[Rfam]
RNA sequence: AGUGAAGGUAGAGGUGCGAGCUUCAAGAGUAAAGGUUCAGAGAAGGAUGAGCUUCAACGAGGAGCCUUAAAAGGGGAUGUUCGCCGAAGUAAAGAAAGCCUCAUUUCUUUCUUUGCUGGUCCUGUAUUGAAUAAAUGCUGGAUUGUCAGGACAAAUGUCUUGGAGAGCUAUCUAACAU
Numbered sequence: 001a002g003u004g005a006a007g008g009u010a011g012a013g014g015u016g017c018g019a020g021c022u023u024c025a026a027g028a029g030u031a032a033a034g035g036u037u038c039a040g041a042g043a044a045g046g047a048u049g050a051g052c053u054u055c056a057a058c059g060a061g062g063a064g065c066c067u068u069a070a071a072a073g074g075g076g077a078u079g080u081u082c083g084c085c086g087a088a089g090u091a092a093a094g095a096a097a098g099c100c101u102c103a104u105u106u107c108u109u110u111c112u113u114u115g116c117u118g119g120u121c122c123u124g125u126a127u128u129g130a131a132u133a134a135a136u137g138c139u140g141g142a143u144u145g146u147c148a149g150g151a152c153a154a155a156u157g158u159c160u161u162g163g164a165g166a167g168c169u170a171u172c173u174a175a176c177a178u
Stems, first nucleotide, its partner, number of pairs: 006173006016084006022077003032068007088117011118144005124138005146163007
The family of this 178-nucleotide RNA sequence from Neobacillus massiliamazoniensis is "Lysine riboswitch aptamer". About the family: Riboswitches are metabolite binding domains within certain messenger RNAs that serve as precision sensors for their corresponding targets. Taxonomically the source falls in Neobacillus (Bacteria, Bacillati, Bacillota, Bacillaceae). Pairs were carried over by alignment from the consensus structure, which is taken from published work. A search with the family's covariance model found it, with a score of 133 bits.